Rfam assigns this 361-nucleotide RNA from Heliobacterium mobile to the family "Bacterial RNase P class B".
RNA sequence: UAUGGUGGAUAGUCGCGGUCUCUGCGCAGCAGGGGUCGAGGAAAUUCGAGACACGCCCAGGGCUGCUUUGGCGGAACUGGAGUAUGGUGCCUGGUGCAAGCCAGGGCAGGGCGACCUGACGACGGCAAACGUGUCUUCUUCGGAAGAUGCCAGUAGCUCUAAAGUGCCACAGAAACAAUGUUCUCCGGCGACGGAGAAGUGCAAGGGUAAACUCCACUAGCGUGCAACCCAAAUAGGCGGCCUUGAGCCGCGGGUAGGGGCACUCGCUUCGGCGGGAAGGAAGCCAGGCCGUAAGGCGCAACUUCCUUAGACAAAUGACUAUCCAUCGGCGACAGCCGGGGACAGAAUCUCGAUUACAGCC
Numbered sequence: 001u002a003u004g005g006u007g008g009a010u011a012g013u014c015g016c017g018g019u020c021u022c023u024g025c026g027c028a029g030c031a032g033g034g035g036u037c038g039a040g041g042a043a044a045u046u047c048g049a050g051a052c053a054c055g056c057c058c059a060g061g062g063c064u065g066c067u068u069u070g071g072c073g074g075a076a077c078u079g080g081a082g083u084a085u086g087g088u089g090c091c092u093g094g095u096g097c098a099a100g101c102c103a104g105g106g107c108a109g110g111g112c113g114a115c116c117u118g119a120c121g122a123c124g125g126c127a128a129a130c131g132u133g134u135c136u137u138c139u140u141c142g143g144a145a146g147a148u149g150c151c152a153g154u155a156g157c158u159c160u161a162a163a164g165u166g167c168c169a170c171a172g173a174a175a176c177a178a179u180g181u182u183c184u185c186c187g188g189c190g191a192c193g194g195a196g197a198a199g200u201g202c203a204a205g206g207g208u209a210a211a212c213u214c215c216a217c218u219a220g221c222g223u224g225c226a227a228c229c230c231a232a233a234u235a236g237g238c239g240g241c242c243u244u245g246a247g248c249c250g251c252g253g254g255u256a257g258g259g260g261c262a263c264u265c266g267c268u269u270c271g272g273c274g275g276g277a278a279g280g281a282a283g284c285c286a287g288g289c290c291g292u293a294a295g296g297c298g299c300a301a302c303u304u305c306c307u308u309a310g311a312c313a314a315a316u317g318a319c320u321a322u323c324c325a326u327c328g329g330c331g332a333c334a335g336c337c338g339g340g341g342a343c344a345g346a347a348u349c350u351c352g353a354u355u356a357c358a359g360c361c
Base pairs, nucleotide, nucleotide: 004361005360006359007357008323009322010321011320012319013318014317016038017037018036019035020034021033043355044354045353047352048351049350050349051348052224053223054222055221056220057080058079059078060077085219086218087217088216089215090105091104092103093102094101095100106120107118108117109116110115121214122213124158125157126156132149133148134147135146136145137144138143164212165211166208167207168206181198182197183196184195185194186193187192228259229258230257263276264275265274266273267272277308278307279306280305281304282303326339327338328337329336330335
Background:
It is annotated as a ribozyme. For this family Rfam cites "Ribonuclease P: unity and diversity in a tRNA processing ribozyme" (Frank and Pace, Annu Rev Biochem, 1998).